[Rfam]
About this RNA:
This 298-nucleotide RNA sequence from Carboxydothermus hydrogenoformans belongs to the Rfam family "T-box leader".

RNA sequence: UGAAAAACGGUGAAGAGGAGCAGUAACUGUUUUGUGGCUUAAAGAGAGCAGCCGGCGGGUGCAAGGCUGUAGCCUCCAAACAGUGAACUCGCCUCGGAGUUGCCAGAGGGAUAAGUACUUCUGGCCGGUAUGUUCCGUUAUCCAAAACAAGUGGGCAAGAAUGUGGGGCUGUAGCGCAGUGGGAGCGCGCUUCCUUGGCAUGGAAGAGGUCGCGGGUUCGAUCCCCGCCAGCUCCACCAUUAUUGUAUUCUUGCCAAGUAGGGUGGUACCGCGGGAAAACACUCCUCCCGUCCCUUAG
Numbered sequence: 001u002g003a004a005a006a007a008c009g010g011u012g013a014a015g016a017g018g019a020g021c022a023g024u025a026a027c028u029g030u031u032u033u034g035u036g037g038c039u040u041a042a043a044g045a046g047a048g049c050a051g052c053c054g055g056c057g058g059g060u061g062c063a064a065g066g067c068u069g070u071a072g073c074c075u076c077c078a079a080a081c082a083g084u085g086a087a088c089u090c091g092c093c094u095c096g097g098a099g100u101u102g103c104c105a106g107a108g109g110g111a112u113a114a115g116u117a118c119u120u121c122u123g124g125c126c127g128g129u130a131u132g133u134u135c136c137g138u139u140a141u142c143c144a145a146a147a148c149a150a151g152u153g154g155g156c157a158a159g160a161a162u163g164u165g166g167g168g169c170u171g172u173a174g175c176g177c178a179g180u181g182g183g184a185g186c187g188c189g190c191u192u193c194c195u196u197g198g199c200a201u202g203g204a205a206g207a208g209g210u211c212g213c214g215g216g217u218u219c220g221a222u223c224c225c226c227g228c229c230a231g232c233u234c235c236a237c238c239a240u241u242a243u244u245g246u247a248u249u250c251u252u253g254c255c256a257a258g259u260a261g262g263g264u265g266g267u268a269c270c271g272c273g274g275g276a277a278a279a280c281a282c283u284c285c286u287c288c289c290g291u292c293c294c295u296u297a298g
Stems, first nucleotide, its partner, number of pairs: 007100002015095004026084006037073003048070006103124007126137003154255013260295004271291005
Uncharged tRNA acts as the effector for transcription antitermination of genes in the T-box leader family. Taxonomically the source falls in Carboxydothermus hydrogenoformans (Bacteria, Bacillota, Clostridia, Thermoanaerobacteraceae).